[Rfam]
RNA: Selenocysteine transfer RNA
RNA sequence: GGGGAGAACGGGGGUGGUCCCCCCUAUGGGCUGCAAACCCAUGAGCCAGUCUGCGAUCCAGGUUGGAGUCCGGUUCAAUUCCGACUUCUCCCC
Numbered sequence: 001g002g003g004g005a006g007a008a009c010g011g012g013g014g015u016g017g018u019c020c021c022c023c024c025u026a027u028g029g030g031c032u033g034c035a036a037a038c039c040c041a042u043g044a045g046c047c048a049g050u051c052u053g054c055g056a057u058c059c060a061g062g063u064u065g066g067a068g069u070c071c072g073g074u075u076c077a078a079u080u081c082c083g084a085c086u087u088c089u090c091c092c093c
Base pairs, nucleotide, nucleotide: 001090002089003088004087005086006085010023011022012021013020014019025044026042027041028040029039030038046066047065048064049063050062069084071083072082073081